[Rfam]
RNA sequence: UGGCUAUAAAAUAACUUAUUCUGUACUUACUUUGAAUUACGAUAAUUACUAUGUUAAUUUAUGAUAUUAUAGUAACUCCUUGCUAAGUGGUUUAUUAUAACGUUAUGGUAAAUAUUCCUAUGUGUUAUAGUAACCCAACUAUCGUAAAUAUGUAUUGACAUUAUCAUAAAUUAAUAUAUAAAAUUAUCGUAAAUGAAGGUGGCUUCUGAAUAUACUCUCUCUCUA
Numbered sequence: 001u002g003g004c005u006a007u008a009a010a011a012u013a014a015c016u017u018a019u020u021c022u023g024u025a026c027u028u029a030c031u032u033u034g035a036a037u038u039a040c041g042a043u044a045a046u047u048a049c050u051a052u053g054u055u056a057a058u059u060u061a062u063g064a065u066a067u068u069a070u071a072g073u074a075a076c077u078c079c080u081u082g083c084u085a086a087g088u089g090g091u092u093u094a095u096u097a098u099a100a101c102g103u104u105a106u107g108g109u110a111a112a113u114a115u116u117c118c119u120a121u122g123u124g125u126u127a128u129a130g131u132a133a134c135c136c137a138a139c140u141a142u143c144g145u146a147a148a149u150a151u152g153u154a155u156u157g158a159c160a161u162u163a164u165c166a167u168a169a170a171u172u173a174a175u176a177u178a179u180a181a182a183a184u185u186a187u188c189g190u191a192a193a194u195g196a197a198g199g200u201g202g203c204u205u206c207u208g209a210a211u212a213u214a215c216u217c218u219c220u221c222u223c224u225a
Stems, first nucleotide, its partner, number of pairs: 005225002008222001010220001011218001013216001017212005023206001025204001027202007037192011050178013066164002069161002074155001080147004087142006093132011107117002
Description: The family of this 225-nucleotide RNA from Miscanthus lutarioriparius is "MIR6217 microRNA precursor family". It scores 130 bits against the family's covariance model. NCBI's taxonomy places the organism under Eukaryota, Streptophytina, Spermatophyta, commelinids, Miscanthus. Its family is annotated with RISC complex and miRNA-mediated post-transcriptional gene silencing in the Gene Ontology. The base pairs follow the family's consensus structure, which was predicted with RNAalifold.